[Rfam]
RNA sequence: GCCAGCAUUUCGUAUAGCCAAGACUUGCGAGAGAGUGCCAGAUAAAUUCAGUAACCCACUGUCCGUGUAAAAACGGUCAUGGCGGAUAGAUGUAUCCGAAGCCAUGUUGCGGGCAGUAAUGGACAGUUUUAUAUCGGGGUUCCGAAAGGUCCUCCGAUAUAUAAAUAAGUGGUUAUAUUUCCC
Numbered sequence: 001g002c003c004a005g006c007a008u009u010u011c012g013u014a015u016a017g018c019c020a021a022g023a024c025u026u027g028c029g030a031g032a033g034a035g036u037g038c039c040a041g042a043u044a045a046a047u048u049c050a051g052u053a054a055c056c057c058a059c060u061g062u063c064c065g066u067g068u069a070a071a072a073a074c075g076g077u078c079a080u081g082g083c084g085g086a087u088a089g090a091u092g093u094a095u096c097c098g099a100a101g102c103c104a105u106g107u108u109g110c111g112g113g114c115a116g117u118a119a120u121g122g123a124c125a126g127u128u129u130u131a132u133a134u135c136g137g138g139g140u141u142c143c144g145a146a147a148g149g150u151c152c153u154c155c156g157a158u159a160u161a162u163a164a165a166u167a168a169g170u171g172g173u174u175a176u177a178u179u180u181c182c183c
Stems, first nucleotide, its partner, number of pairs: 001038002008032007016025002051176006058117008078106006084097004130161010142149002
RNA: RT-7 RNA